[Rfam]
RNA sequence: UCAUCAGAUGGGAUAAUUUUUACCUGUUCCUCCUUUUGGAGGUUAGAUUCGAAUAUGAUGAUUGGAGUUCAUAUGGUACAUGAUUAAUGUCUCUGCAUAAUCAGGACUUGCAACACCUUGAUUGCUCCUGAU
Numbered sequence: 001u002c003a004u005c006a007g008a009u010g011g012g013a014u015a016a017u018u019u020u021u022a023c024c025u026g027u028u029c030c031u032c033c034u035u036u037u038g039g040a041g042g043u044u045a046g047a048u049u050c051g052a053a054u055a056u057g058a059u060g061a062u063u064g065g066a067g068u069u070c071a072u073a074u075g076g077u078a079c080a081u082g083a084u085u086a087a088u089g090u091c092u093c094u095g096c097a098u099a100a101u102c103a104g105g106a107c108u109u110g111c112a113a114c115a116c117c118u119u120g121a122u123u124g125c126u127c128c129u130g131a132u
Stems, first nucleotide, its partner, number of pairs: 024046003029042005075093002078090003081086001098124008

The family of this 132-nucleotide RNA from Piliocolobus tephrosceles is "U8 small nucleolar RNA". Rfam 15.1 lists 1,597 matches to the family in 457 species. For this family Rfam cites "The U8 snoRNA gene family: identification and characterization of distinct, functional U8 genes in Xenopus" (Peculis et al., Gene, 2001). Pairs were carried over by alignment from the consensus structure, which is taken from published work. NCBI's taxonomy places the organism under Eukaryota, Metazoa, Primates, Cercopithecidae, Piliocolobus. By type it is a C/D-box small nucleolar RNA.